Small nucleolar RNA snR60/Z15/Z230/Z193/J17: a 74-nucleotide RNA from Poecilia reticulata. Its family is annotated with nucleolus and RNA processing in the Gene Ontology. It scores 45 bits against the family's covariance model. The family's RNA type in Rfam is C/D-box small nucleolar RNA. The family is grouped with related families in Rfam's "SNORD77 clan". For this family Rfam cites "A computational screen for methylation guide snoRNAs in yeast" (Lowe and Eddy, Science, 1999). Lineage of the source: Eukaryota > Opisthokonta > Neoteleostei > Atherinomorphae > Poecilia.
RNA sequence: CUGAUGCAGUGAUGAUCUUAUAGUUCAACAGAUCACUAUGAAGAACAAUCUUUCGCUCCUAUCUGAUGCACCGG
Dot-bracket structure: ....((((..........................................................))))....
Numbered sequence: 001c002u003g004a005u006g007c008a009g010u011g012a013u014g015a016u017c018u019u020a021u022a023g024u025u026c027a028a029c030a031g032a033u034c035a036c037u038a039u040g041a042a043g044a045a046c047a048a049u050c051u052u053u054c055g056c057u058c059c060u061a062u063c064u065g066a067u068g069c070a071c072c073g074g
Stems, first nucleotide, its partner, number of pairs: 005070004